rhtB sRNA: an 82-nucleotide sequence from Pelagibacterales bacterium SAG-MED34. A search with the family's covariance model found it, with a score of 77 bits. The family's consensus secondary structure is taken from published work. The organism belongs to Candidatus Pelagibacterales, within Bacteria.
RNA sequence: UGAUAAUAUCACUUUUAGAUAGUCCUAUCUAGCCAUCUUUAGCUCCCGGUUUUUUAGGACUAUCCUAAGAUGCUUCCUCUAA
Number, nucleotide and partner (000 for none) at each position: 001u000002g000003a000004u000005a000006a000007u000008a000009u000010c000011a000012c000013u000014u000015u000016u000017a000018g064019a063020u062021a061022g060023u059024c058025c057026u056027a000028u000029c000030u000031a051032g050033c049034c048035a000036u000037c000038u000039u000040u000041a000042g000043c000044u000045c000046c000047c000048g034049g033050u032051u031052u000053u000054u000055u000056a026057g025058g024059a023060c022061u021062a020063u019064c018065c000066u000067a000068a000069g000070a000071u000072g000073c000074u000075u000076c000077c000078u000079c000080u000081a000082a000